[Rfam]
RNA sequence: CCGUGCUCACCUUUACGACGGAUCGUCCGGCACGUACCUGCCGGUGAAGGAGUUGUUC
Numbered sequence: 001c002c003g004u005g006c007u008c009a010c011c012u013u014u015a016c017g018a019c020g021g022a023u024c025g026u027c028c029g030g031c032a033c034g035u036a037c038c039u040g041c042c043g044g045u046g047a048a049g050g051a052g053u054u055g056u057u058c
Stems, first nucleotide, its partner, number of pairs: 010050006027044006
This 58-nucleotide sequence from Nocardioides sp. JS614 belongs to the Rfam family "msiK RNA". The sequence is in the family's curated seed alignment. It is annotated as a cis-regulatory element.